The family of this 81-nucleotide sequence from Lynx pardinus is "mir-872 microRNA precursor family". The literature on the family includes a 2010 paper in Mol Hum Reprod by Ahn et al., "MicroRNA transcriptome in the newborn mouse ovaries determined by massive parallel sequencing". The match comes from Rfam's covariance-model search (77 bits).
[Rfam]
Nucleotides: 081
Stems, first nucleotide, its partner, number of pairs: 001079001003077002006074005012068007024055002027052005
Number, partner (000 for none) and nucleotide at each position: 001079g002000u003077u004076u005000u006074g007073u008072u009071a010070g011000a012068a013067g014066g015065u016064u017063a018062u019000g020000u021000g022000u023000u024055a025054g026000c027052u028051c029050a030049g031048g032000a033000c034000u035000u036000c037000a038000u039000u040000a041000u042000u043000u044000c045000u046000c047000g048031u049030c050029u051028g052027a053000c054025c055024u056000u057000u058000u059000g060000c061000a062018g063017u064016a065015g066014c067013c068012u069000u070010c071009u072008a073007a074006c075000u076004g077003g078000u079001u080000g081000c